[Rfam]
RNA sequence: AAGAUGAAGAAAACGAAGCCUCAUAUAAUAGUGGGAAUAUGGCCUGCAAGUUUCUACCCGAUUACCGUAAAUGAUUGGACUAUGGGGAAAGCAUAAAUUUAU
Numbered sequence: 001a002a003g004a005u006g007a008a009g010a011a012a013a014c015g016a017a018g019c020c021u022c023a024u025a026u027a028a029u030a031g032u033g034g035g036a037a038u039a040u041g042g043c044c045u046g047c048a049a050g051u052u053u054c055u056a057c058c059c060g061a062u063u064a065c066c067g068u069a070a071a072u073g074a075u076u077g078g079a080c081u082a083u084g085g086g087g088a089a090a091g092c093a094u095a096a097a098u099u100u101a102u
Base pairs, nucleotide, nucleotide: 019087020086021085022084023083024082025081029049031047032046033045034044035043058078059077060076061075062074063073064072